RNA: MIR2619 microRNA precursor family
Organism: Medicago truncatula
RNA sequence: AAACAACCCUCCAUGUAUUGGAUCUUUGGCAGUUUUGGCCCCAAGGCUACUUUUGACUUAGUCUUCGUUGACAUGGCACCCACAAUGGUCAACACGUGGCACUUCACUUAAGUGAUGUGAGUGCCACGUCAGCGAAGACUAAGUCAAAAGUGGCCUUGGAGGCCAAAACUACCAAAUAUCCAAUACAUAGGGGGCUGUUU
Numbered sequence: 001a002a003a004c005a006a007c008c009c010u011c012c013a014u015g016u017a018u019u020g021g022a023u024c025u026u027u028g029g030c031a032g033u034u035u036u037g038g039c040c041c042c043a044a045g046g047c048u049a050c051u052u053u054u055g056a057c058u059u060a061g062u063c064u065u066c067g068u069u070g071a072c073a074u075g076g077c078a079c080c081c082a083c084a085a086u087g088g089u090c091a092a093c094a095c096g097u098g099g100c101a102c103u104u105c106a107c108u109u110a111a112g113u114g115a116u117g118u119g120a121g122u123g124c125c126a127c128g129u130c131a132g133c134g135a136a137g138a139c140u141a142a143g144u145c146a147a148a149a150g151u152g153g154c155c156u157u158g159g160a161g162g163c164c165a166a167a168a169c170u171a172c173c174a175a176a177u178a179u180c181c182a183a184u185a186c187a188u189a190g191g192g193g194g195c196u197g198u199u200u
Stems, first nucleotide, its partner, number of pairs: 001200002004197002007194002013188011025176005031170010041159004071129002074126006081119001